[Rfam]
Description:
Molybdenum/Tungsten riboswitch aptamer (Moco RNA motif): a 131-nucleotide sequence from Desulforamulus ruminis. The family's consensus secondary structure is taken from published work. It scores 43 bits against the family's covariance model. Lineage of the source: Bacteria > Bacillati > Eubacteriales > Peptococcaceae > Desulforamulus ruminis. Gene Ontology terms of the family: tungstate binding, regulation of gene expression and molybdenum ion binding. Rfam 15.1 lists 1,248 matches to the family in 836 species. For this family Rfam cites "in molybdenum cofactor and tungsten cofactor metabolism" (Regulski et al., Mol Microbiol, 2008).
RNA sequence: UUUCUGACCGGCUUUUGAGCAGAUGUUCCUAAAGCAUGGCCAGGGGAUAUUUGUCGGGCAAUGCGGCCCAAAGGAUCUGAACGGAAACGUUGAUCCCUUCCUUUCAAGAAAGGAAGACAAUAGCAUACUUU
Numbered sequence: 001u002u003u004c005u006g007a008c009c010g011g012c013u014u015u016u017g018a019g020c021a022g023a024u025g026u027u028c029c030u031a032a033a034g035c036a037u038g039g040c041c042a043g044g045g046g047a048u049a050u051u052u053g054u055c056g057g058g059c060a061a062u063g064c065g066g067c068c069c070a071a072a073g074g075a076u077c078u079g080a081a082c083g084g085a086a087a088c089g090u091u092g093a094u095c096c097c098u099u100c101c102u103u104u105c106a107a108g109a110a111a112g113g114a115a116g117a118c119a120a121u122a123g124c125a126u127a128c129u130u131u
Stems, first nucleotide, its partner, number of pairs: 003125001012116005019054011034040002056069004073096005080091004098108002